A member of the RNA family "Betaproteobacteria-1 RNA", 124 nucleotides long. Pairs were carried over by alignment from the consensus structure, which is taken from published work.
[Rfam]
Nucleotides: 124
Base pairs, nucleotide, nucleotide: 002040003039004038005037006036007035008034009033010032028056029055030054031053047077048076049075050074051073063108064107065106066105081104082103083102084101085100086099093120094119095118096117097116098115
Number, partner (000 for none) and nucleotide at each position: 001000u002040u003039c004038c005037u006036a007035u008034u009033u010032c011000g012000a013000g014000g015000c016000u017000c018000u019000a020000a021000c022000g023000a024000c025000a026000u027000a028056c029055c030054a031053g032010g033009g034008a035007a036006u037005a038004g039003g040002a041000u042000u043000a044000a045000a046000a047077g048076c049075g050074c051073u052000a053031c054030u055029g056028g057000g058000g059000g060000u061000a062000a063108u064107g065106g066105u067000u068000g069000a070000a071000a072000c073051a074050g075049c076048g077047c078000a079000a080000u081104a082103u083102a084101g085100g086099u087000g088000g089000c090000g091000a092000a093120g094119a095118u096117a097116g098115u099086g100085c101084c102083u103082a104081u105066a106065c107064c108063a109000u110000g111000c112000a113000a114000g115098a116097c117096u118095g119094u120093c121000g122000g123000g124000u
Rfam classes the family as a small RNA.